[Rfam]
MIR396 microRNA precursor family: a 117-nucleotide sequence from Oryza brachyantha. It scores 96 bits against the family's covariance model. Lineage of the source: Eukaryota > commelinids > Poales > Oryzeae > Oryza. Gene Ontology terms of the family: miRNA-mediated post-transcriptional gene silencing and RISC complex.
RNA sequence: CUUUGUAAUCUUCCACAGCUUUCUUGAACUGCAUCUGUGAGAUACAUUAGUACCCUCUGUAUGGAUUUUUACUUGCAUGAGUUUGCAGUUCAAUAAAGCUGUGGGAAAUUACAGAGA
Numbered sequence: 001c002u003u004u005g006u007a008a009u010c011u012u013c014c015a016c017a018g019c020u021u022u023c024u025u026g027a028a029c030u031g032c033a034u035c036u037g038u039g040a041g042a043u044a045c046a047u048u049a050g051u052a053c054c055c056u057c058u059g060u061a062u063g064g065a066u067u068u069u070u071a072c073u074u075g076c077a078u079g080a081g082u083u084u085g086c087a088g089u090u091c092a093a094u095a096a097a098g099c100u101g102u103g104g105g106a107a108a109u110u111a112c113a114g115a116g117a
Stems, first nucleotide, its partner, number of pairs: 003114005013104003017100006024093004029088005